[Rfam]
RNA sequence: UCACUUACCUGGACGGGGUCAAUGGAUGAUCAAGUAGGUCCAUGGCCUAGGUUGGUGACCUCCAUUGCACUCAGGAGGGGUGCCCGCCUAAGGUCGGCCCAAGUGGUCGAGCCUAUGUCAUAAUUUGUGGCAGUGGAGGCCUGCGUUCGCGCGGCCUCUGC
Dot-bracket structure: ...........((((((((((.(((((..........)))))))))))(((.(.(((.(((((..........)).))).)))..)))).((((((.((.....)).))).))).))))..............(((((...((((....))))..))))).
RNA: U1 spliceosomal RNA